[Rfam]
RNA: Ruegeria cis52 sRNA
RNA sequence: UUCGGAGCGCAUGGCGAAUGACGAUGUUGCGGAAGCUCACGCCCUUGAGCCGCGCGGUGCGAAUAUAUUGCGCCGUCAUCACCUCGGUCAUCGAGGCGCGGGUCAUGCGGGCGAUGUAGCCCAUGCCGUAAAGCGCGAUGGUCAGGACGGGCAGGAAGAAGUUCUCGAAAUUGGCGCUUUC
Numbered sequence: 001u002u003c004g005g006a007g008c009g010c011a012u013g014g015c016g017a018a019u020g021a022c023g024a025u026g027u028u029g030c031g032g033a034a035g036c037u038c039a040c041g042c043c044c045u046u047g048a049g050c051c052g053c054g055c056g057g058u059g060c061g062a063a064u065a066u067a068u069u070g071c072g073c074c075g076u077c078a079u080c081a082c083c084u085c086g087g088u089c090a091u092c093g094a095g096g097c098g099c100g101g102g103u104c105a106u107g108c109g110g111g112c113g114a115u116g117u118a119g120c121c122c123a124u125g126c127c128g129u130a131a132a133g134c135g136c137g138a139u140g141g142u143c144a145g146g147a148c149g150g151g152c153a154g155g156a157a158g159a160a161g162u163u164c165u166c167g168a169a170a171u172u173g174g175c176g177c178u179u180u181c
Stems, first nucleotide, its partner, number of pairs: 006139001008137003012133001015128002019125001021124001028123002031120001038113001040111001042109001046105003050101005055075008082096005146181002149177001151175002154165004